RNA sequence: UCGCAGGCAUAGUCCAGUGGUUACUUCGUAGCAAUUCUGGGUAAAUUCUGGUAAUAAAUUAAAUGGCAAUUCUCGGAACGCUUUGACCACGGACGCAGUCCUGCGUAUUU
Number, nucleotide and partner (000 for none) at each position: 001u000002c105003g104004c103005a102006g101007g100008c000009a000010u000011a000012g094013u093014c092015c091016a000017g090018u089019g088020g087021u000022u000023a000024c000025u077026u076027c075028g074029u000030a000031g000032c000033a000034a000035u000036u000037c000038u000039g000040g000041g000042u000043a000044a000045a000046u000047u000048c000049u000050g000051g000052u000053a000054a000055u000056a000057a000058a000059u000060u000061a000062a000063a000064u000065g000066g000067c000068a000069a000070u000071u000072c000073u000074c028075g027076g026077a025078a000079c000080g000081c000082u000083u000084u000085g000086a000087c020088c019089a018090c017091g015092g014093a013094c012095g000096c000097a000098g000099u000100c007101c006102u005103g004104c003105g002106u000107a000108u000109u000110u000
Shown here is a 110-nucleotide RNA from Araneus ventricosus, a member of the family "Vault RNA". Rfam's curators write: This family of RNAs are found as part of the enigmatic vault ribonucleoprotein complex. It scores 46 bits against the family's covariance model. On this family, see Stadler et al., Mol Biol Evol 2009: "Evolution of Vault RNAs". Rfam classes the family as a non-coding RNA gene. The family's consensus secondary structure is taken from published work.